[Rfam]
RNA sequence: GUGAAGUGACGAUUAAUAUUCAUAUCUGUCAAUCCUCUGAAGCAUUUUUAUGAUGCCAUUCUGAAUAUCCCGACAGGUUCUGAUCGC
Numbered sequence: 001g002u003g004a005a006g007u008g009a010c011g012a013u014u015a016a017u018a019u020u021c022a023u024a025u026c027u028g029u030c031a032a033u034c035c036u037c038u039g040a041a042g043c044a045u046u047u048u049u050a051u052g053a054u055g056c057c058a059u060u061c062u063g064a065a066u067a068u069c070c071c072g073a074c075a076g077g078u079u080c081u082g083a084u085c086g087c
Base pairs, nucleotide, nucleotide: 001087002086003085004084